[Rfam]
Nucleotides: 127
Stems, first nucleotide, its partner, number of pairs: 002019006028062003031058001032053005038047002077098004084091002102120006
Number, partner (000 for none) and nucleotide at each position: 001000c002019c003018u004017a005016g006015a007014g008000u009000u010000c011000u012000a013000c014007c015006u016005c017004u018003a019002g020000u021000a022000u023000c024000c025000u026000a027000c028062c029061c030060a031058c032053c033052a034051u035050g036049c037000a038047a039046c040000a041000a042000g043000g044000a045000c046039g047038u048000g049036g050035u051034a052033u053032g054000a055000a056000g057000c058031g059000c060030u061029g062028g063000g064000g065000a066000c067000a068000a069000u070000g071000u072000a073000c074000c075000u076000a077098a078097g079096a080095c081000a082000a083000g084091c085090c086000g087000u088000g089000a090085g091084g092000u093000g094000a095080g096079u097078c098077u099000g100000c101000g102120a103119u104118u105117g106116u107115g108000a109000a110000u111000g112000u113000c114000a115107c116106a117105u118104g119103a120102u121000c122000a123000g124000g125000g126000g127000c

Group II catalytic intron D1-D4-7: a 127-nucleotide sequence from Osedax symbiont Rs1.
Rfam describes the family as follows. Group II introns are found in rRNA, tRNA and mRNA of organelles in fungi, plants and protists, and also in mRNA in bacteria.
A search with the family's covariance model found it, with a score of 74 bits.
Gene Ontology term of the family: Group II intron splicing.
NCBI's taxonomy places the organism under Bacteria, Pseudomonadati, Gammaproteobacteria, Oceanospirillales, Oceanospirillaceae.
The base pairs follow the family's consensus structure.